[Rfam]
RNA: U2 spliceosomal RNA
Organism: Synaphobranchus kaupii
RNA sequence: AUAACUUGUAAAAAUCCAAUAAAAAACAAAUGUUCUUAUCAGUUUAAUAUCUGAUACGUCCCCUAUCAGGGGACCACAUAUUAAACGGAUUUUUGGAACAGGGAGUCGGAGAAGGAGCUUGCUCCGUCCACUCCACGCAUCGGCCCGGCCCUGCAGAACUGCUAGGAACGGUGCACCGAUC
Numbered sequence: 001a002u003a004a005c006u007u008g009u010a011a012a013a014a015u016c017c018a019a020u021a022a023a024a025a026a027c028a029a030a031u032g033u034u035c036u037u038a039u040c041a042g043u044u045u046a047a048u049a050u051c052u053g054a055u056a057c058g059u060c061c062c063c064u065a066u067c068a069g070g071g072g073a074c075c076a077c078a079u080a081u082u083a084a085a086c087g088g089a090u091u092u093u094u095g096g097a098a099c100a101g102g103g104a105g106u107c108g109g110a111g112a113a114g115g116a117g118c119u120u121g122c123u124c125c126g127u128c129c130a131c132u133c134c135a136c137g138c139a140u141c142g143g144c145c146c147g148g149c150c151c152u153g154c155a156g157a158a159c160u161g162c163u164a165g166g167a168a169c170g171g172u173g174c175a176c177c178g179a180u181c
Stems, first nucleotide, its partner, number of pairs: 007025001037056006058074007102134005108128002114125004137174006144166002147163003